[Rfam]
RNA sequence: AGCCUGUGAUGUGAGAAAAAUAUAUUUGCUACUCUUGAUGGGGAAACCCAUCUGAUGACAAUCUACCACCAAGAUCUCUGAGGCU
Number, nucleotide and partner (000 for none) at each position: 001a085002g084003c083004c082005u000006g000007u000008g000009a000010u000011g000012u000013g000014a000015g000016a000017a000018a000019a000020a000021u000022a000023u000024a000025u000026u000027u000028g000029c000030u000031a000032c000033u000034c000035u000036u000037g000038a000039u000040g000041g000042g000043g000044a000045a000046a000047c000048c000049c000050a000051u000052c000053u000054g000055a000056u000057g000058a000059c000060a000061a000062u000063c000064u000065a000066c000067c000068a000069c000070c000071a000072a000073g000074a000075u000076c000077u000078c000079u000080g000081a000082g004083g003084c002085u001
Source information
Rfam assigns this 85-nucleotide RNA sequence from Phoenix dactylifera to the family "Small nucleolar RNA SNORD24". It is annotated as a C/D-box small nucleolar RNA. NCBI's taxonomy places the organism under Eukaryota, Spermatophyta, Mesangiospermae, Arecales, Phoenix.